[Rfam]
RNA: small nucleolar RNA snoR135
Organism: Musa troglodytarum
RNA sequence: UCUGCAGGAUAGUGUGUAUCGGUGUUAUGUUAGUGCUACCGUGCAUUUCUUGCCGAAAGUGUUUCCUGCUAAAGCAAUCUUGCGGAAAAUGGGCAGUUGGGAUGAACCCUAAUCAUCCACUGGGUAUCUCGACAAUCAUUUUCCUCACAUUU
Numbered sequence: 001u002c003u004g005c006a007g008g009a010u011a012g013u014g015u016g017u018a019u020c021g022g023u024g025u026u027a028u029g030u031u032a033g034u035g036c037u038a039c040c041g042u043g044c045a046u047u048u049c050u051u052g053c054c055g056a057a058a059g060u061g062u063u064u065c066c067u068g069c070u071a072a073a074g075c076a077a078u079c080u081u082g083c084g085g086a087a088a089a090u091g092g093g094c095a096g097u098u099g100g101g102a103u104g105a106a107c108c109c110u111a112a113u114c115a116u117c118c119a120c121u122g123g124g125u126a127u128c129u130c131g132a133c134a135a136u137c138a139u140u141u142u143c144c145u146c147a148c149a150u151u152u
Base pairs, nucleotide, nucleotide: 004069005068006067007066008065009063014046015045016044017043018042019041082146084144085143086142087141088140089139090138091137092136096133097132098131099130100129101128102127